[Rfam]
RNA sequence: UGGCGCCCAAUAUGGGGCCUGGAUACUGGGGACAACGUGAGGGAGACAACGAAGGAAAGAGGGGUGCGCACCCGGUCGAAUAAUUUGGAGACGUCACGGGAGCCUGCUGCGACCGAGCCAAAGGUAAGUCGGCCACGUAAAUCAUGGGGCAAGAAUUAAGUCAGCAUCAGAUUUAUGUGAUACAGUUAAGAGAAGCUCUACAGGCAAGAGGAGUAAAGGUUAAAACUGAGGAUUUAUUUCAUUUCUUUGAUUUUGUAAAGGACAUUUGUCCAU
Numbered sequence: 001u002g003g004c005g006c007c008c009a010a011u012a013u014g015g016g017g018c019c020u021g022g023a024u025a026c027u028g029g030g031g032a033c034a035a036c037g038u039g040a041g042g043g044a045g046a047c048a049a050c051g052a053a054g055g056a057a058a059g060a061g062g063g064g065u066g067c068g069c070a071c072c073c074g075g076u077c078g079a080a081u082a083a084u085u086u087g088g089a090g091a092c093g094u095c096a097c098g099g100g101a102g103c104c105u106g107c108u109g110c111g112a113c114c115g116a117g118c119c120a121a122a123g124g125u126a127a128g129u130c131g132g133c134c135a136c137g138u139a140a141a142u143c144a145u146g147g148g149g150c151a152a153g154a155a156u157u158a159a160g161u162c163a164g165c166a167u168c169a170g171a172u173u174u175a176u177g178u179g180a181u182a183c184a185g186u187u188a189a190g191a192g193a194a195g196c197u198c199u200a201c202a203g204g205c206a207a208g209a210g211g212a213g214u215a216a217a218g219g220u221u222a223a224a225a226c227u228g229a230g231g232a233u234u235u236a237u238u239u240c241a242u243u244u245c246u247u248u249g250a251u252u253u254u255g256u257a258a259a260g261g262a263c264a265u266u267u268g269u270c271c272a273u
Stems, first nucleotide, its partner, number of pairs: 006031003013025002037047002084123003087119002092115002095111001097109003129152001131150001134148001136146002157200002160196002208248006217235005258273001260271004
Shown here is a 273-nucleotide RNA from Nannospalax galili, a member of the family "Mason-Pfizer monkey virus packaging signal". Rfam 15.1 lists 2,921 matches to the family in 53 species. This family represents a group of sequences that are related to the Mason-Pfizer monkey virus (MPMV) packaging signal. The packaging signal is located in the 5' UTR and is required for specific RNA encapsidation. Rfam classes the family as a cis-regulatory element.